[Rfam]
RNA sequence: AAAGUUCAAUUUUGAAACAACUAUCUUGGCCUUCUCUUCUGUCUGCUAGACCAACACAUUGAUCUCCUAUUGGUAACCCCAACAAUCCUUCAUCUGUAUAUGCAAUUAUACGAUAGCUAGUUUUUUGGUUAUUUGCCUAUAUAAUUGAAAGAAUGUUGGGGCUGCCGAUGAAAUCAGUCUGUAGGUCCAGCCAUCACACAAGAGGGCCAAGGUAGUUGUUUCACAGUUGCACCUU
Numbered sequence: 001a002a003a004g005u006u007c008a009a010u011u012u013u014g015a016a017a018c019a020a021c022u023a024u025c026u027u028g029g030c031c032u033u034c035u036c037u038u039c040u041g042u043c044u045g046c047u048a049g050a051c052c053a054a055c056a057c058a059u060u061g062a063u064c065u066c067c068u069a070u071u072g073g074u075a076a077c078c079c080c081a082a083c084a085a086u087c088c089u090u091c092a093u094c095u096g097u098a099u100a101u102g103c104a105a106u107u108a109u110a111c112g113a114u115a116g117c118u119a120g121u122u123u124u125u126u127g128g129u130u131a132u133u134u135g136c137c138u139a140u141a142u143a144a145u146u147g148a149a150a151g152a153a154u155g156u157u158g159g160g161g162c163u164g165c166c167g168a169u170g171a172a173a174u175c176a177g178u179c180u181g182u183a184g185g186u187c188c189a190g191c192c193a194u195c196a197c198a199c200a201a202g203a204g205g206g207c208c209a210a211g212g213u214a215g216u217u218g219u220u221u222c223a224c225a226g227u228u229g230c231a232c233c234u235u
Base pairs, nucleotide, nucleotide: 004232005231007229008228009227010226011225013223014222015221016220017219018218019217020216021215022214023213024212025211026210027209028208029207030206031205032204033203034202035201038200040198041197045191046190047189049187050186051185052184054182055181056180058178059177060176061175062174065172067170069169070168071167072166073165074164075163077161078160079159080158081157082156083155084154086152087151089149
Rfam assigns this 235-nucleotide RNA sequence from Brachypodium distachyon to the family "MIR7723 microRNA precursor family". The family's consensus secondary structure was predicted with RNAalifold.